[Rfam]
RNA: RgsA sRNA
Organism: Atopomonas hussainii
RNA sequence: CAAACAGCUGCGAUCUAUUACCAAUCCAUCUUAAAAACGCUGGAAAAACCAGCUAUCUGGCCAAUACUUAAAGUCACUGGUGCGCGGCAUACCCCCCCAAGUGCCCGGCCAGUUUUAGGUACCGUGGAUCGUGUACCGUUGUUUCACUCCUAAUGGUCUUGACCCGGAUUCAUCCCCCAGAACCCGG
Numbered sequence: 001c002a003a004a005c006a007g008c009u010g011c012g013a014u015c016u017a018u019u020a021c022c023a024a025u026c027c028a029u030c031u032u033a034a035a036a037a038c039g040c041u042g043g044a045a046a047a048a049c050c051a052g053c054u055a056u057c058u059g060g061c062c063a064a065u066a067c068u069u070a071a072a073g074u075c076a077c078u079g080g081u082g083c084g085c086g087g088c089a090u091a092c093c094c095c096c097c098c099a100a101g102u103g104c105c106c107g108g109c110c111a112g113u114u115u116u117a118g119g120u121a122c123c124g125u126g127g128a129u130c131g132u133g134u135a136c137c138g139u140u141g142u143u144u145c146a147c148u149c150c151u152a153a154u155g156g157u158c159u160u161g162a163c164c165c166g167g168a169u170u171c172a173u174c175c176c177c178c179a180g181a182a183c184c185c186g187g
Stems, first nucleotide, its partner, number of pairs: 039158001076113004083108001086105001088103003118137005123131001164187004169182003